[Rfam]
RNA: Small nucleolar RNA SNORD24
RNA sequence: GGCCGGUGAUGUAUGAUAAUAUUUGCUACUCUUGAUGGGAUUUCUACGGGAAUUUCACUUGAUGAUCUUUUAUCCACCAAGAUCUCUGAGGUC
Numbered sequence: 001g002g003c004c005g006g007u008g009a010u011g012u013a014u015g016a017u018a019a020u021a022u023u024u025g026c027u028a029c030u031c032u033u034g035a036u037g038g039g040a041u042u043u044c045u046a047c048g049g050g051a052a053u054u055u056c057a058c059u060u061g062a063u064g065a066u067c068u069u070u071u072a073u074c075c076a077c078c079a080a081g082a083u084c085u086c087u088g089a090g091g092u093c
Base pairs, nucleotide, nucleotide: 001093002092003091004090